[Rfam]
RNA sequence: AAACACGCAAUGACAGGCAACAGUAGAAUUCUUCUCCCUGUUUCAUAGAGAGCUGAUGGUUGGUGGAAAUCAGCACAAAGAAGAAAUCGAAUUACACCCUCGAGCAUUCCUUACCUAAACGCGGUAUACCUUCCGUUGUUUAAGUAAGGACGGUGCAUAGCCGUUAUAUAAAAAGAAGUGGCGGAACUACGAUUCCGCAAUUUAGGGUGGUACCGCGAUGCACAUUCGUCCCUGCU
Numbered sequence: 001a002a003a004c005a006c007g008c009a010a011u012g013a014c015a016g017g018c019a020a021c022a023g024u025a026g027a028a029u030u031c032u033u034c035u036c037c038c039u040g041u042u043u044c045a046u047a048g049a050g051a052g053c054u055g056a057u058g059g060u061u062g063g064u065g066g067a068a069a070u071c072a073g074c075a076c077a078a079a080g081a082a083g084a085a086a087u088c089g090a091a092u093u094a095c096a097c098c099c100u101c102g103a104g105c106a107u108u109c110c111u112u113a114c115c116u117a118a119a120c121g122c123g124g125u126a127u128a129c130c131u132u133c134c135g136u137u138g139u140u141u142a143a144g145u146a147a148g149g150a151c152g153g154u155g156c157a158u159a160g161c162c163g164u165u166a167u168a169u170a171a172a173a174a175g176a177a178g179u180g181g182c183g184g185a186a187c188u189a190c191g192a193u194u195c196c197g198c199a200a201u202u203u204a205g206g207g208u209g210g211u212a213c214c215g216c217g218a219u220g221c222a223c224a225u226u227c228g229u230c231c232c233u234g235c236u
Stems, first nucleotide, its partner, number of pairs: 007105002015100003026088002029085003039077003052074006109149006151163003181198006204233004215229004